Source information
Shown here is a 103-nucleotide RNA sequence from Desemzia incerta, a member of the family "S10-Clostridia ribosomal protein leader". By type it is a cis-regulatory leader. The literature on the family includes a 2020 paper in BMC Microbiol by Eckert and Weinberg, "Discovery of 20 novel ribosomal leader candidates in bacteria and archaea". Taxonomically the source falls in Desemzia (Bacteria, Bacillota, Bacilli, Carnobacteriaceae).
RNA sequence: CGAUGGCUAAGAAACGGGAGGUUGCGAUACACCCGGCCGCUUUGCCACGGCGAGUGUGUCGGAAAUUUUCGUGGAGCAAUGUCUACUUUAUAAGAAUAGGCGA
Numbered sequence: 001c002g003a004u005g006g007c008u009a010a011g012a013a014a015c016g017g018g019a020g021g022u023u024g025c026g027a028u029a030c031a032c033c034c035g036g037c038c039g040c041u042u043u044g045c046c047a048c049g050g051c052g053a054g055u056g057u058g059u060c061g062g063a064a065a066u067u068u069u070c071g072u073g074g075a076g077c078a079a080u081g082u083c084u085a086c087u088u089u090a091u092a093a094g095a096a097u098a099g100g101c102g103a
Stems, first nucleotide, its partner, number of pairs: 014072003018069004025061008082103002087100003
Dot-bracket structure: .............(((.((((...((((((((.....................))))))))....))))))).........((...(((........))).))